[Rfam]
A member of the RNA family "Vertebrate telomerase RNA" from Anguilla anguilla, 336 nucleotides long. Rfam links the family to the GO terms telomerase catalytic core complex, telomere maintenance via telomerase and telomerase activity. By type it is a non-coding RNA gene. The match comes from Rfam's covariance-model search (88 bits). The literature on the family includes a 2002 paper in Nucleic Acids Res by Antal et al., "Analysis of the structure of human telomerase RNA in vivo". The base pairs follow the family's consensus structure, which is taken from published work. Clan: Telomerase clan.

RNA sequence: UCUGCUCGUAGAGUAACUUUCUAACCCUAAGUAUUUUUUUACUUUCUCGUUGACAUGGUUGCUGUUUUGUCUCUUGCUUUCAGGAACCUCACGGGAAGCUUUGGGCGUAUUGACGGAAUCCACGAAAAAAAGUCUAGAGGCUUACUCUGCUGUGCUCUGUCACGCGGUGAAGCGUGCCAUGGCUGCGGACAGCUCGGCUGCCGCUAAGAGUUUGUCUCUGAGGCCGUGGCACUGCUUCCUGGGUAAUGUAAAACUGAGUAGAUUAAACUGAAUGCUGCUUUACCUUUUGCGAAUCCUUCCCAAUGGGCUCGCAAGAAAACCAGCGUUCAAACAAAC
Numbered sequence: 001u002c003u004g005c006u007c008g009u010a011g012a013g014u015a016a017c018u019u020u021c022u023a024a025c026c027c028u029a030a031g032u033a034u035u036u037u038u039u040u041a042c043u044u045u046c047u048c049g050u051u052g053a054c055a056u057g058g059u060u061g062c063u064g065u066u067u068u069g070u071c072u073c074u075u076g077c078u079u080u081c082a083g084g085a086a087c088c089u090c091a092c093g094g095g096a097a098g099c100u101u102u103g104g105g106c107g108u109a110u111u112g113a114c115g116g117a118a119u120c121c122a123c124g125a126a127a128a129a130a131a132g133u134c135u136a137g138a139g140g141c142u143u144a145c146u147c148u149g150c151u152g153u154g155c156u157c158u159g160u161c162a163c164g165c166g167g168u169g170a171a172g173c174g175u176g177c178c179a180u181g182g183c184u185g186c187g188g189a190c191a192g193c194u195c196g197g198c199u200g201c202c203g204c205u206a207a208g209a210g211u212u213u214g215u216c217u218c219u220g221a222g223g224c225c226g227u228g229g230c231a232c233u234g235c236u237u238c239c240u241g242g243g244u245a246a247u248g249u250a251a252a253a254c255u256g257a258g259u260a261g262a263u264u265a266a267a268c269u270g271a272a273u274g275c276u277g278c279u280u281u282a283c284c285u286u287u288u289g290c291g292a293a294u295c296c297u298u299c300c301c302a303a304u305g306g307g308c309u310c311g312c313a314a315g316a317a318a319a320c321c322a323g324c325g326u327u328c329a330a331a332c333a334a335a336c
Stems, first nucleotide, its partner, number of pairs: 005152001008150009043098005057088004062083003072138003076133002078130003155258003159254002167240001169238005176230004185204004190200004207219004270328004275323003279319003287314005294307003